The family of this 113-nucleotide RNA from Paenibacillus sp. HGF7 is "TPP riboswitch aptamer (THI element)".
[Rfam]
RNA sequence: AAUAAGACGCAGGGGUGCUGGAAUCGGCCGGCUGAGAUUGUAUCCCAUAAAGAUACUGACCCUUACACCUGAUCUGGAUAAUGCCAGCGUAGGAAACCGUACGGAUACUAUCG
Numbered sequence: 001a002a003u004a005a006g007a008c009g010c011a012g013g014g015g016u017g018c019u020g021g022a023a024u025c026g027g028c029c030g031g032c033u034g035a036g037a038u039u040g041u042a043u044c045c046c047a048u049a050a051a052g053a054u055a056c057u058g059a060c061c062c063u064u065a066c067a068c069c070u071g072a073u074c075u076g077g078a079u080a081a082u083g084c085c086a087g088c089g090u091a092g093g094a095a096a097c098c099g100u101a102c103g104g105a106u107a108c109u110a111u112c113g
Stems, first nucleotide, its partner, number of pairs: 007100003011063004017032005040056004068093004074087004

Lineage of the source: Bacteria > Bacillati > Caryophanales > Paenibacillaceae > Paenibacillus.